RNA sequence: AUGUAUUUAGUAGGAAUUGAACAUAAGAAUUUGCCAAUUAUGAGUUAGGUGUUUUAACCAUUCAACCAUGGAUGC
Numbered sequence: 001a002u003g004u005a006u007u008u009a010g011u012a013g014g015a016a017u018u019g020a021a022c023a024u025a026a027g028a029a030u031u032u033g034c035c036a037a038u039u040a041u042g043a044g045u046u047a048g049g050u051g052u053u054u055u056a057a058c059c060a061u062u063c064a065a066c067c068a069u070g071g072a073u074g075c
Stems, first nucleotide, its partner, number of pairs: 003075006011025002014022001040069003044066003048062004
Dot-bracket structure: ..((((((..((.(.......).))..............(((.(((.((((.......)))).))))))))))))
Overview: Plastid-ycf2 5UTR RNA: a 75-nucleotide RNA sequence from Camellia sinensis. Taxonomically the source falls in Camellia (Eukaryota, Tracheophyta, Magnoliopsida, Pentapetalae). The family's consensus secondary structure was predicted with LocARNA. Rfam classes the family as a cis-regulatory element.